[Rfam]
Nucleotides: 080
Base pairs, nucleotide, nucleotide: 029059030058032056033055037050038049039048040047
Number, partner (000 for none) and nucleotide at each position: 001000g002000a003000u004000c005000a006000g007000u008000g009000a010000u011000g012000a013000a014000a015000a016000u017000a018000g019000c020000c021000a022000a023000a024000u025000c026000u027000g028000a029059g030058c031000a032056u033055c034000a035000g036000a037050a038049g039048a040047c041000a042000u043000u044000c045000c046000u047040g048039u049038c050037u051000a052000c053000c054000u055033g056032a057000c058030g059029u060000a061000u062000g063000a064000u065000c066000g067000c068000u069000a070000u071000a072000g073000u074000u075000c076000u077000a078000a079000g080000a
Notes:
The family of this 80-nucleotide sequence from Rousettus aegyptiacus is "Small nucleolar RNA U2-19". For this family Rfam cites "Guide RNAs with 5' Caps and Novel Box C/D snoRNA-like Domains for Modification of snRNAs in Metazoa" (Tycowski et al., Curr Biol, 2004). Rfam links the family to the GO terms RNA processing and nucleolus. The family's RNA type in Rfam is C/D-box small nucleolar RNA.